[Rfam]
RNA sequence: UUUUUGAGAACCAUUUGAAUCAAGUGGUGAUUCAAAUGGUUCUCAAAAA
Numbered sequence: 001u002u003u004u005u006g007a008g009a010a011c012c013a014u015u016u017g018a019a020u021c022a023a024g025u026g027g028u029g030a031u032u033c034a035a036a037u038g039g040u041u042c043u044c045a046a047a048a049a
Stems, first nucleotide, its partner, number of pairs: 004046019
Rfam assigns this 49-nucleotide RNA from Platanus occidentalis to the family "Plastid-ccsA-ndhD-1 3UTR RNA". The literature on the family includes a 2004 paper in Nucleic Acids Res by Zandueta-Criado and Bock, "Surprising features of plastid ndhD transcripts: addition of non-encoded nucleotides and polysome association of mRNAs with an unedited start codon". Rfam's curators put it in the seed alignment. The source organism's lineage runs through Eukaryota, Embryophyta, Tracheophyta, Mesangiospermae and Platanus. From the family's description: Plastid-ccsA-ndhD-1 is a non-coding RNA (ncRNA) recognised in plastids. It was found in the three prime untranslated region (3UTR) of ccsA and ndhD genes, its 3UTR location suggests a role in transcript maturation.